[Rfam]
Rfam assigns this 178-nucleotide sequence from Scytonema hofmannii to the family "Antisense RNA which regulates isiA expression".
RNA sequence: GAUAGCCGUAGAUGGUGAAUGGGUUGAGGGUGGGAUUAGUGACUACUCGAACAGCGUGAAUUGUUGAAUCGUAAAGCCCGCCCCAAAACAUAGCUUUCGCGACAAGCAAUAAGGCACCUACUCCUAAGAAAAGGAGGUGAUGUCCUAAGAUAAAGCUAAGUUUUUUUGGCUCGUCCCA
Numbered sequence: 001g002a003u004a005g006c007c008g009u010a011g012a013u014g015g016u017g018a019a020u021g022g023g024u025u026g027a028g029g030g031u032g033g034g035a036u037u038a039g040u041g042a043c044u045a046c047u048c049g050a051a052c053a054g055c056g057u058g059a060a061u062u063g064u065u066g067a068a069u070c071g072u073a074a075a076g077c078c079c080g081c082c083c084c085a086a087a088a089c090a091u092a093g094c095u096u097u098c099g100c101g102a103c104a105a106g107c108a109a110u111a112a113g114g115c116a117c118c119u120a121c122u123c124c125u126a127a128g129a130a131a132a133g134g135a136g137g138u139g140a141u142g143u144c145c146u147a148a149g150a151u152a153a154a155g156c157u158a159a160g161u162u163u164u165u166u167u168g169g170c171u172c173g174u175c176c177c178a
Stems, first nucleotide, its partner, number of pairs: 136175005144169002147166002

Lineage of the source: Bacteria > Cyanobacteriota > Cyanophyceae > Scytonemataceae > Scytonema hofmannii. A search with the family's covariance model found it, with a score of 125 bits.